[Rfam]
RNA sequence: UGGUAGAUGCACCCUGUAAUUCUCCCUCCGACCCCAAGGUUGGAGGCUUUUUCU
Numbered sequence: 001u002g003g004u005a006g007a008u009g010c011a012c013c014c015u016g017u018a019a020u021u022c023u024c025c026c027u028c029c030g031a032c033c034c035c036a037a038g039g040u041u042g043g044a045g046g047c048u049u050u051u052u053c054u
Stems, first nucleotide, its partner, number of pairs: 002013003025046009
Nitrogen stress-induced RNA 1: a 54-nucleotide sequence from Allocoleopsis franciscana.
It scores 48 bits against the family's covariance model.
Rfam classes the family as a small RNA.
Pairs were carried over by alignment from the consensus structure.
On this family, see Ionescu et al., J Mol Biol 2010: "Heterocyst-specific transcription of NsiR1, a non-coding RNA encoded in a tandem array of direct repeats in cyanobacteria".